Rfam assigns this 70-nucleotide RNA from Etheostoma spectabile to the family "miR-430 microRNA precursor family". Its family is annotated with RISC complex and miRNA-mediated post-transcriptional gene silencing in the Gene Ontology. The family's consensus secondary structure was predicted with RNAalifold. On this family, see Giraldez et al., Science 2005: "MicroRNAs regulate brain morphogenesis in zebrafish". The match comes from Rfam's covariance-model search (49 bits). The family has 32 seed sequences and 24,817 matches in Rfam 15.1.

[Rfam]
RNA sequence: UUAUUAACUCUGACAUUAGCUUUGACUUGACUGUUGAAUUCAGUAAGUGCUACUUGUUGGGGUAGUUGAA
Numbered sequence: 001u002u003a004u005u006a007a008c009u010c011u012g013a014c015a016u017u018a019g020c021u022u023u024g025a026c027u028u029g030a031c032u033g034u035u036g037a038a039u040u041c042a043g044u045a046a047g048u049g050c051u052a053c054u055u056g057u058u059g060g061g062g063u064a065g066u067u068g069a070a
Stems, first nucleotide, its partner, number of pairs: 005065001007063005013057003018051003022047002025044003